Rfam assigns this 291-nucleotide RNA sequence from Vespula germanica to the family "Nuclear RNase P". The base pairs follow the family's consensus structure, which is taken from published work. Rfam describes the family as follows. Ribonuclease P (RNase P) is a ubiquitous endoribonuclease, found in archaea, bacteria and eukarya as well as chloroplasts and mitochondria. Lineage of the source: Eukaryota > Mandibulata > Neoptera > Aculeata > Vespula.

[Rfam]
RNA sequence: GCAGUAUCAAUCUAGCAGAAGAGGUUCACAUUCAGGGUAUUUAAUUACCGGUAUUAAACCUCGGGAAGGUCUGAGACAAGGUCUAUAAACAUUCUAGCAGGAUGGCAUCUUAAAGAUGUGUAUGGGAACUAGAAACAGCUUUGUGUUACCAAAUAAACCGGGGAAGUUUCAAUUGAAACAGAGGUAACUGGAAACACAAAGAUGGAAACUUAUAUGAUCUGCUUUUUAAGUCCAAUCUGCAAGCUGGUUUAUUUUUAUUCCAGAACUCAAUUCAGACUAGUCUGAUACUGC
Numbered sequence: 001g002c003a004g005u006a007u008c009a010a011u012c013u014a015g016c017a018g019a020a021g022a023g024g025u026u027c028a029c030a031u032u033c034a035g036g037g038u039a040u041u042u043a044a045u046u047a048c049c050g051g052u053a054u055u056a057a058a059c060c061u062c063g064g065g066a067a068g069g070u071c072u073g074a075g076a077c078a079a080g081g082u083c084u085a086u087a088a089a090c091a092u093u094c095u096a097g098c099a100g101g102a103u104g105g106c107a108u109c110u111u112a113a114a115g116a117u118g119u120g121u122a123u124g125g126g127a128a129c130u131a132g133a134a135a136c137a138g139c140u141u142u143g144u145g146u147u148a149c150c151a152a153a154u155a156a157a158c159c160g161g162g163g164a165a166g167u168u169u170c171a172a173u174u175g176a177a178a179c180a181g182a183g184g185u186a187a188c189u190g191g192a193a194a195c196a197c198a199a200a201g202a203u204g205g206a207a208a209c210u211u212a213u214a215u216g217a218u219c220u221g222c223u224u225u226u227u228a229a230g231u232c233c234a235a236u237c238u239g240c241a242a243g244c245u246g247g248u249u250u251a252u253u254u255u256u257a258u259u260c261c262a263g264a265a266c267u268c269a270a271u272u273c274a275g276a277c278u279a280g281u282c283u284g285a286u287a288c289u290g291c
Stems, first nucleotide, its partner, number of pairs: 001291004007285003012243002015240004021062005036049004071275005080219004090104005105119005120215007140201003244263004250257001